The record is a 98-nucleotide RNA sequence from Ruminiclostridium cellobioparum, which matches "Guanidine-I riboswitch aptamer" in Rfam. The literature on the family includes a 2021 paper in RNA by Trachman RJ 3rd and Ferre-D'Amare, "An uncommon [K(+)(Mg(2+))2] metal ion triad imparts stability and selectivity to the Guanidine-I riboswitch". NCBI's taxonomy places the organism under Bacteria, Bacillati, Oscillospiraceae, Ruminiclostridium cellobioparum, Ruminiclostridium cellobioparum subsp. termitidis. About the family: This family represents a conserved RNA structure found upstream of the ykkC and yxkD genes in Bacillus subtilis and related genes in other bacteria. The function of this family is unclear although it has been suggested that it may function to switch on efflux pumps and detoxification systems in response to harmful environmental molecules.
RNA sequence: AUAAAAGUUUUCUAGGGUUCCGCAGUCUUACUGGUCCGAGACCAAGAGAAAACUCAUAGCUGACAGCUAUGCCACGGAAGGAUAAAAACCUGGGAGGU
Number, nucleotide and partner (000 for none) at each position: 001a000002u000003a000004a000005a000006a000007g053008u052009u051010u050011u049012c048013u000014a000015g043016g042017g000018u000019u000020c040021c038022g036023c033024a032025g031026u030027c000028u000029u000030a026031c025032u024033g023034g000035u000036c022037c000038g021039a000040g020041a000042c016043c015044a000045a000046g000047a000048g012049a011050a010051a009052a008053c007054u000055c071056a070057u069058a068059g067060c066061u065062g000063a000064c000065a061066g060067c059068u058069a057070u056071g055072c000073c093074a000075c096076g000077g000078a000079a091080g090081g089082a000083u000084a000085a000086a000087a000088a000089c081090c080091u079092g000093g073094g000095a000096g075097g000098u000